[Rfam]
RNA: c-di-GMP-I riboswitch aptamer
RNA sequence: GAGCGAUAAAGGUAAACCCUGAGUGAUCAGGGGGCGCAAAGUAACAGGGUCUUUAAGUUUACAAGGAUGUAAUGAUAAGAUAGCCUUACUGCCGAA
Numbered sequence: 001g002a003g004c005g006a007u008a009a010a011g012g013u014a015a016a017c018c019c020u021g022a023g024u025g026a027u028c029a030g031g032g033g034g035c036g037c038a039a040a041g042u043a044a045c046a047g048g049g050u051c052u053u054u055a056a057g058u059u060u061a062c063a064a065g066g067a068u069g070u071a072a073u074g075a076u077a078a079g080a081u082a083g084c085c086u087u088a089c090u091g092c093c094g095a096a
Stems, first nucleotide, its partner, number of pairs: 012037002017032006040090004046086003049081005